[Rfam]
RNA sequence: GAGACACACUUAUGGUGCAGGCCUUGUUUCAGUGGGGCUUUGGUGCUCACUGAGUCUGCCUCUUAAACGUGUCAUU
Numbered sequence: 001g002a003g004a005c006a007c008a009c010u011u012a013u014g015g016u017g018c019a020g021g022c023c024u025u026g027u028u029u030c031a032g033u034g035g036g037g038c039u040u041u042g043g044u045g046c047u048c049a050c051u052g053a054g055u056c057u058g059c060c061u062c063u064u065a066a067a068c069g070u071g072u073c074a075u076u
Stems, first nucleotide, its partner, number of pairs: 001075001003073005010066003014062002017059003021056001023054001029053008037044002
The record is a 76-nucleotide RNA sequence from Pipistrellus kuhlii, which matches "mir-9229 microRNA precursor family" in Rfam.
The family's consensus secondary structure was predicted with RNAalifold.
A search with the family's covariance model found it, with a score of 74 bits.